A member of the RNA family "Flavo-1 RNA" from Seonamhaeicola maritimus, 84 nucleotides long.
[Rfam]
RNA sequence: CUUUUGUUUGCGUUAAGGAUUAAUGCGGUAUCCUUUUUUAUGACCUUAGACAUAAAAAAGAUUUAGCGGAAAGCCUGACCACGC
Numbered sequence: 001c002u003u004u005u006g007u008u009u010g011c012g013u014u015a016a017g018g019a020u021u022a023a024u025g026c027g028g029u030a031u032c033c034u035u036u037u038u039u040a041u042g043a044c045c046u047u048a049g050a051c052a053u054a055a056a057a058a059a060g061a062u063u064u065a066g067c068g069g070a071a072a073g074c075c076u077g078a079c080c081a082c083g084c
Stems, first nucleotide, its partner, number of pairs: 016076003020072002025067002030062003036057007

The source organism's lineage runs through Bacteria, Bacteroidota, Flavobacteriia, Flavobacteriales and Seonamhaeicola.
A search with the family's covariance model found it, with a score of 48 bits.
By type it is a small RNA.
Pairs were carried over by alignment from the consensus structure, which is taken from published work.